RNA sequence: UGGCUACAAAAUAACUUAUUCUGUAGACACUUUGAGUUAUGAUAAUUACUAUAUUAAUUUACAAGAUUAUAGUAACUCUUUACUAAGUGGUUUACUAUAACGUUAUGGUAAAUAUCCCCAUGUGUUAUAGUAACCUAAGUAUCGUAAAUAUGUAUUGACAUUAUCAUAAAUUAGUAUAUAAAAUUAUCGUAAAUGAAGGUGGCUAUAAAAUAAUUUUAUAUACUA
Numbered sequence: 001u002g003g004c005u006a007c008a009a010a011a012u013a014a015c016u017u018a019u020u021c022u023g024u025a026g027a028c029a030c031u032u033u034g035a036g037u038u039a040u041g042a043u044a045a046u047u048a049c050u051a052u053a054u055u056a057a058u059u060u061a062c063a064a065g066a067u068u069a070u071a072g073u074a075a076c077u078c079u080u081u082a083c084u085a086a087g088u089g090g091u092u093u094a095c096u097a098u099a100a101c102g103u104u105a106u107g108g109u110a111a112a113u114a115u116c117c118c119c120a121u122g123u124g125u126u127a128u129a130g131u132a133a134c135c136u137a138a139g140u141a142u143c144g145u146a147a148a149u150a151u152g153u154a155u156u157g158a159c160a161u162u163a164u165c166a167u168a169a170a171u172u173a174g175u176a177u178a179u180a181a182a183a184u185u186a187u188c189g190u191a192a193a194u195g196a197a198g199g200u201g202g203c204u205a206u207a208a209a210a211u212a213a214u215u216u217u218a219u220a221u222a223c224u225a
Stems, first nucleotide, its partner, number of pairs: 005225002009221001011219003014215001016213005022207005028201006037192011050178012065165003069161002074155001079148005087142003091138002093132011107117002
This 225-nucleotide RNA sequence from Miscanthus lutarioriparius belongs to the Rfam family "MIR6217 microRNA precursor family". The family's consensus secondary structure was predicted with RNAalifold. NCBI's taxonomy places the organism under Eukaryota, Magnoliopsida, Mesangiospermae, Andropogonodae, Miscanthus. Gene Ontology terms of the family: RISC complex and miRNA-mediated post-transcriptional gene silencing.